[Rfam]
RNA sequence: AGGAGCACCUGGGAACUUGUUAGAAACACAGUUUCCAGACUAAAUGUUCGCUAUGUUAAGACCGUGCGUGUGUCGCCGGUUCUCGUUCCCUCCCUAGGCCGGGUUUUAUAAAUGCUGGUGAUACAC
Number, nucleotide and partner (000 for none) at each position: 001a000002g000003g000004a000005g000006c000007a000008c000009c038010u037011g036012g035013g034014a033015a032016c031017u030018u028019g027020u000021u000022a000023g000024a000025a000026a000027c019028a018029c000030a017031g016032u015033u014034u013035c012036c011037a010038g009039a000040c000041u000042a000043a000044a000045u000046g000047u000048u000049c000050g000051c000052u000053a000054u000055g000056u000057u000058a000059a000060g000061a119062c118063c117064g116065u000066g115067c114068g000069u000070g000071u000072g000073u000074c000075g000076c103077c102078g000079g100080u000081u098082c097083u096084c000085g094086u000087u000088c000089c000090c000091u000092c000093c000094c085095u000096a083097g082098g081099c000100c079101g000102g077103g076104u000105u000106u000107u000108a000109u000110a000111a000112a000113u000114g067115c066116u064117g063118g062119u061120g000121a000122u000123a000124c000125a000126c000
RNA: Small nucleolar RNA SNORA72
Organism: Canis lupus